This 92-nucleotide RNA sequence from Bombilactobacillus mellis belongs to the Rfam family "RNA anti-toxin A". Taxonomically the source falls in Bombilactobacillus (Bacteria, Bacilli, Lactobacillales, Lactobacillaceae). The literature on the family includes a 2010 paper in Nucleic Acids Res by Fozo et al., "Abundance of type I toxin-antitoxin systems in bacteria: searches for new candidates and discovery of novel families". The family has 16 seed sequences and 190 matches in Rfam 15.1. By type it is an antitoxin RNA. It scores 56 bits against the family's covariance model. Its family is annotated with negative regulation of translation and mRNA binding in the Gene Ontology.

RNA sequence: UAAUGAAGACAUAAAAAGAGCCGGUGUUGCUAUCACCAGCCCUUCUAUGUAUAGCCGUUUAAGACGGUGACGCAGUAUAAAGUUAUUUAAUU
Dot-bracket structure: ...........................((.......))...............((((((...))))))........................